[Rfam]
RNA sequence: CAAAUAAAACCUAACAUUUUUAUAAUUAUAUAAUUAUAAGGGGAUAUUAUAUAUUAAUAUAUUUAAUAUAUAUUAAUAAACCAAAUAAUUAUUAAAAUUAUAAUUAUAGUACCAAUAUCAUUUAUUUCUUAUAAAAAUUAUAUUAAAAAAGGUAAAUUCUUUUAGAAUUGUUAUAGUUUUAAUAUUUAAAUAUAAGAAAUGAAUGAGGGAAUAUUUUAAAAAUUCAAAGAAUAAUAAUUUAAUAUUAUAUUAUUAUUAUUCUAGGAUAUUGGUAUAAAAUAGGUUUUAUCUGACCCGUCUUGAAACACGG
Numbered sequence: 001c002a003a004a005u006a007a008a009a010c011c012u013a014a015c016a017u018u019u020u021u022a023u024a025a026u027u028a029u030a031u032a033a034u035u036a037u038a039a040g041g042g043g044a045u046a047u048u049a050u051a052u053a054u055u056a057a058u059a060u061a062u063u064u065a066a067u068a069u070a071u072a073u074u075a076a077u078a079a080a081c082c083a084a085a086u087a088a089u090u091a092u093u094a095a096a097a098u099u100a101u102a103a104u105u106a107u108a109g110u111a112c113c114a115a116u117a118u119c120a121u122u123u124a125u126u127u128c129u130u131a132u133a134a135a136a137a138u139u140a141u142a143u144u145a146a147a148a149a150a151g152g153u154a155a156a157u158u159c160u161u162u163u164a165g166a167a168u169u170g171u172u173a174u175a176g177u178u179u180u181a182a183u184a185u186u187u188a189a190a191u192a193u194a195a196g197a198a199a200u201g202a203a204u205g206a207g208g209g210a211a212u213a214u215u216u217u218a219a220a221a222a223u224u225c226a227a228a229g230a231a232u233a234a235u236a237a238u239u240u241a242a243u244a245u246u247a248u249a250u251u252a253u254u255a256u257u258a259u260u261c262u263a264g265g266a267u268a269u270u271g272g273u274a275u276a277a278a279a280u281a282g283g284u285u286u287u288a289u290c291u292g293a294c295c296c297g298u299c300u301u302g303a304a305a306c307a308c309g310g
Stems, first nucleotide, its partner, number of pairs: 001292002004289009018109001021108010113271007295310004
RNA: Eukaryotic large subunit ribosomal RNA, nucleotides 427 to 736